[Rfam]
RNA: Small nucleolar RNA SNORD35
RNA sequence: CGGUGAUGAUGUCCAAACUCACGAUGGUCUGCAGAGUCCCCCAGGGGAGGGGCUGCUGACAACGCCACUGGCACGUGCUGAGCCGUGGGG
Numbered sequence: 001c002g003g004u005g006a007u008g009a010u011g012u013c014c015a016a017a018c019u020c021a022c023g024a025u026g027g028u029c030u031g032c033a034g035a036g037u038c039c040c041c042c043a044g045g046g047g048a049g050g051g052g053c054u055g056c057u058g059a060c061a062a063c064g065c066c067a068c069u070g071g072c073a074c075g076u077g078c079u080g081a082g083c084c085g086u087g088g089g090g
Stems, first nucleotide, its partner, number of pairs: 001085004